[Rfam]
RNA sequence: CUGAGAAGACAAGCAAUCGCUUUUACAUGAAAGUGUAGAGGAGGAAAGUCUGGACUUUAUAGGAGAGGAUGCCAGUGAAAGACUGGGGGCCGCAAGGCUACGGAAAGUGCCACAGAAAACAAACCGCUAACAAGCUAUGCUUGUUAGAUAGGGUGAAAUGCCUGCUUUAGGAGCAUGGCCUUAUCUAGAGAAAUUUAGAAAGUGGUAAACCCCAUCCAAAGCAAGACGGAAAUAAAGCGAUACAGUUCUCCGCUGUGCUUUAGAAAAGUCGCUUGAGGGUUUCGGUGACGGCGCCCCUAGAGGAAUGAUUGCUCGUCUGCUUUGCAGACCGACAGAAUCCGGCUUAUCGUCUUCUCAGAUCU
Numbered sequence: 001c002u003g004a005g006a007a008g009a010c011a012a013g014c015a016a017u018c019g020c021u022u023u024u025a026c027a028u029g030a031a032a033g034u035g036u037a038g039a040g041g042a043g044g045a046a047a048g049u050c051u052g053g054a055c056u057u058u059a060u061a062g063g064a065g066a067g068g069a070u071g072c073c074a075g076u077g078a079a080a081g082a083c084u085g086g087g088g089g090c091c092g093c094a095a096g097g098c099u100a101c102g103g104a105a106a107g108u109g110c111c112a113c114a115g116a117a118a119a120c121a122a123a124c125c126g127c128u129a130a131c132a133a134g135c136u137a138u139g140c141u142u143g144u145u146a147g148a149u150a151g152g153g154u155g156a157a158a159u160g161c162c163u164g165c166u167u168u169a170g171g172a173g174c175a176u177g178g179c180c181u182u183a184u185c186u187a188g189a190g191a192a193a194u195u196u197a198g199a200a201a202g203u204g205g206u207a208a209a210c211c212c213c214a215u216c217c218a219a220a221g222c223a224a225g226a227c228g229g230a231a232a233u234a235a236a237g238c239g240a241u242a243c244a245g246u247u248c249u250c251c252g253c254u255g256u257g258c259u260u261u262a263g264a265a266a267a268g269u270c271g272c273u274u275g276a277g278g279g280u281u282u283c284g285g286u287g288a289c290g291g292c293g294c295c296c297c298u299a300g301a302g303g304a305a306u307g308a309u310u311g312c313u314c315g316u317c318u319g320c321u322u323u324g325c326a327g328a329c330c331g332a333c334a335g336a337a338u339c340c341g342g343c344u345u346a347u348c349g350u351c352u353u354c355u356c357a358g359a360u361c362u
Stems, first nucleotide, its partner, number of pairs: 001358010011347001012313007020041009046345003050342005055221004062251004067217005072086005087101001088099004102212002107210002109206003124152002127147008160179003163175003182201001184199006225270003233262006242256005277296004282291003
Shown here is a 362-nucleotide RNA sequence from Parachlamydia acanthamoebae, a member of the family "Bacterial RNase P class A". Rfam classes the family as a ribozyme. Ribonuclease P (RNase P) is a ubiquitous endoribonuclease, found in archaea, bacteria and eukarya as well as chloroplasts and mitochondria. The base pairs follow the family's consensus structure, which is taken from published work.